Description: A member of the RNA family "Streptomyces-metH RNA" from Streptomyces shenzhenensis, 130 nucleotides long. The source organism's lineage runs through Bacteria, Bacillati, Actinomycetota, Streptomycetaceae and Streptomyces. The family's RNA type in Rfam is small RNA.
RNA sequence: CCCGUCCGUCUCGUGGACGCCCUGCCCAUCCAAGCCCACUCCCGGUUACCCUGGCGCCGUGCGCCUGCUCCGGGACCGUCCGGACGACCGCAUAGCCGACAGCCGUCGCACUCCAGGGAGCCCUUACAUG
Numbered sequence: 001c002c003c004g005u006c007c008g009u010c011u012c013g014u015g016g017a018c019g020c021c022c023u024g025c026c027c028a029u030c031c032a033a034g035c036c037c038a039c040u041c042c043c044g045g046u047u048a049c050c051c052u053g054g055c056g057c058c059g060u061g062c063g064c065c066u067g068c069u070c071c072g073g074g075a076c077c078g079u080c081c082g083g084a085c086g087a088c089c090g091c092a093u094a095g096c097c098g099a100c101a102g103c104c105g106u107c108g109c110a111c112u113c114c115a116g117g118g119a120g121c122c123c124u125u126a127c128a129u130g
Base pairs, nucleotide, nucleotide: 060092061091062090063089065086068083095109096108098107099106100105